[Rfam]
RNA sequence: CCAUGGUGGUGGUUGGUGGCCCCAUGGUGGUGGUUGG
Dot-bracket structure: ((((((...............))))))..........
Shown here is a 37-nucleotide RNA sequence from Amazona collaria, a member of the family "Prion pseudoknot". The literature on the family includes a 2001 paper in Nucleic Acids Res by Barrette et al., "Pseudoknots in prion protein mRNAs confirmed by comparative sequence analysis and pattern searching". This family represents a predicted pseudoknot structure found in prion protein mRNA. It has been suggested that the family has a possible effect in prion protein translation. The base pairs follow the family's consensus structure, which is taken from published work. The family's RNA type in Rfam is cis-regulatory element. NCBI's taxonomy places the organism under Eukaryota, Deuterostomia, Dipnotetrapodomorpha, Archosauria, Amazona.